[Rfam]
RNA sequence: CACAGAGAUAGAGGUUGCACGUUCUAUCAGUACCUUUUCAGAUGUAUCAGGAACAGGAGAAGGAAAGGGAAAGGAGAGGGUGCCGAAGGAACAGGAGACCUGAGAUCUUGUCCCUGGGCAUGGGGGUGAAGAACCUCAUGACUGUCAUCGCAAGAUGGAGUGCUAUCCGAAGA
Numbered sequence: 001c002a003c004a005g006a007g008a009u010a011g012a013g014g015u016u017g018c019a020c021g022u023u024c025u026a027u028c029a030g031u032a033c034c035u036u037u038u039c040a041g042a043u044g045u046a047u048c049a050g051g052a053a054c055a056g057g058a059g060a061a062g063g064a065a066a067g068g069g070a071a072a073g074g075a076g077a078g079g080g081u082g083c084c085g086a087a088g089g090a091a092c093a094g095g096a097g098a099c100c101u102g103a104g105a106u107c108u109u110g111u112c113c114c115u116g117g118g119c120a121u122g123g124g125g126g127u128g129a130a131g132a133a134c135c136u137c138a139u140g141a142c143u144g145u146c147a148u149c150g151c152a153a154g155a156u157g158g159a160g161u162g163c164u165a166u167c168c169g170a171a172g173a
Stems, first nucleotide, its partner, number of pairs: 007167005017083004022078004033068007087115003091111006116143002119140007145158005